[Rfam]
RNA: c-di-AMP riboswitch aptamer (ydaO/yuaA leader)
RNA sequence: GAGCGAGAAUCGCCGAAUCCGACAAGCUCUAGUCGGUACGGGGGACGCAACACCCUGGGGUGAAUCCAUUUUUUUGGAGGGGCUACCUUUCAGCCCUAACCCGUCAACUAACCUCGGAGGCGCACUAGAAAGGGGCC
Numbered sequence: 001g002a003g004c005g006a007g008a009a010u011c012g013c014c015g016a017a018u019c020c021g022a023c024a025a026g027c028u029c030u031a032g033u034c035g036g037u038a039c040g041g042g043g044g045a046c047g048c049a050a051c052a053c054c055c056u057g058g059g060g061u062g063a064a065u066c067c068a069u070u071u072u073u074u075u076g077g078a079g080g081g082g083c084u085a086c087c088u089u090u091c092a093g094c095c096c097u098a099a100c101c102c103g104u105c106a107a108c109u110a111a112c113c114u115c116g117g118a119g120g121c122g123c124a125c126u127a128g129a130a131a132g133g134g135g136c137c
Base pairs, nucleotide, nucleotide: 011122012121013120014119019036020035021034022033023032039116040115041114042113043112048057049056058102059101060100066077067076068075080096081095082094083093